Shown here is a 108-nucleotide RNA from Gossypium mustelinum, a member of the family "mir-395 microRNA precursor family". The base pairs follow the family's consensus structure, which was predicted with PFOLD. A search with the family's covariance model found it, with a score of 64 bits. Rfam's curators write: mir-395 was identified in both Arabidopsis thaliana and Oryza sativa computationally and was later experimentally verified. mir-395 is thought to target mRNAs coding for ATP sulphurylases. The mature sequence is excised from the 3' arm of the hairpin. For this family Rfam cites "Computational Identification of Plant MicroRNAs and Their Targets, Including a Stress-Induced miRNA" (Jones-Rhoades and Bartel, Mol Cell, 2004). Gene Ontology terms of the family: RISC complex and miRNA-mediated post-transcriptional gene silencing. The organism belongs to Gossypium, within Eukaryota.
[Rfam]
RNA sequence: GUGUUCCCUGGAGUUCCCCUGAACACUUCACCGGGUGGGGCUAUUUUAAGACUCUUAGCCGAGGAAACUUUAUCCUACUGAAGCGUUUGGGGGAACUCUAGGGGAUGU
Numbered sequence: 001g002u003g004u005u006c007c008c009u010g011g012a013g014u015u016c017c018c019c020u021g022a023a024c025a026c027u028u029c030a031c032c033g034g035g036u037g038g039g040g041c042u043a044u045u046u047u048a049a050g051a052c053u054c055u056u057a058g059c060c061g062a063g064g065a066a067a068c069u070u071u072a073u074c075c076u077a078c079u080g081a082a083g084c085g086u087u088u089g090g091g092g093g094a095a096c097u098c099u100a101g102g103g104g105a106u107g108u
Base pairs, nucleotide, nucleotide: 005104006103007102008101009100011098012097013096014095015094016093017092018091019090020089022088023087024085026083027082028081029080030079033076034075035074